A member of the RNA family "SAM riboswitch aptamer (S box leader)" from Paenibacillus spiritus, 147 nucleotides long.

RNA sequence: AUCUUAUCAAGAGCGGCGGAGGGAUAGGCCCGAUGAAGCCCGGCAACCGAUCUUCGGACAACAAGCGCACAAGGCGCGGUUGGAAGAAGGUGUCAUGGUGCUAAUUCCUGCACAGGACGGACAUUCCGGAACGUGCGCAGAUGAGAG
Number, nucleotide and partner (000 for none) at each position: 001a000002u146003c145004u144005u143006a142007u141008c140009a000010a000011g000012a000013g041014c000015g040016g039017c038018g000019g000020a000021g031022g030023g029024a000025u110026a109027g108028g107029c023030c022031c021032g000033a000034u000035g000036a000037a000038g017039c016040c015041c013042g102043g101044c100045a099046a000047c098048c097049g094050a093051u092052c000053u000054u000055c000056g000057g000058a000059c000060a000061a000062c000063a000064a000065g000066c000067g000068c000069a000070c000071a000072a000073g000074g000075c000076g000077c000078g000079g000080u000081u000082g000083g000084a000085a000086g000087a000088a000089g000090g000091u000092g051093u050094c049095a000096u000097g048098g047099u045100g044101c043102u042103a000104a000105u000106u139107c028108c027109u026110g025111c000112a000113c000114a000115g000116g000117a000118c000119g000120g000121a000122c000123a000124u000125u000126c000127c000128g000129g000130a000131a000132c000133g000134u000135g000136c000137g000138c000139a106140g008141a007142u006143g005144a004145g003146a002147g000
Source information
The SAM riboswitch is found upstream of a number of genes which code for proteins involved in methionine or cysteine biosynthesis in Gram-positive bacteria. The SAM riboswitch acts at the level of transcription termination control. The predicted structure consists of a complex stem-loop region followed by a single stem loop terminator region. An alternative and mutually exclusive form involves bases in the 3' segment of helix 1 with those in the 5' region of helix 5 to form a structure termed the anti-terminator form. Lineage of the source: Bacteria > Bacilli > Caryophanales > Paenibacillaceae > Paenibacillus.